[Rfam]
RNA sequence: AUCCAGCUGUUUCCUAAUUUUGAAGGAACAUAGCUGAAGCGGAGGAACCAUAUCUGGGGCGUAUUCUAGAGCGACAAGCUAGAAGGGGCACCUCUCAGCCCUAGCCCGUCAGCUAACUUCGUCGGCAGUGAGGGGAGAUCGA
Numbered sequence: 001a002u003c004c005a006g007c008u009g010u011u012u013c014c015u016a017a018u019u020u021u022g023a024a025g026g027a028a029c030a031u032a033g034c035u036g037a038a039g040c041g042g043a044g045g046a047a048c049c050a051u052a053u054c055u056g057g058g059g060c061g062u063a064u065u066c067u068a069g070a071g072c073g074a075c076a077a078g079c080u081a082g083a084a085g086g087g088g089c090a091c092c093u094c095u096c097a098g099c100c101c102u103a104g105c106c107c108g109u110c111a112g113c114u115a116a117c118u119u120c121g122u123c124g125g126c127a128g129u130g131a132g133g134g135g136a137g138a139u140c141g142a
Stems, first nucleotide, its partner, number of pairs: 011127001013125002018038003039122006049056002057107003065083004086101004
RNA: c-di-AMP riboswitch aptamer (ydaO/yuaA leader)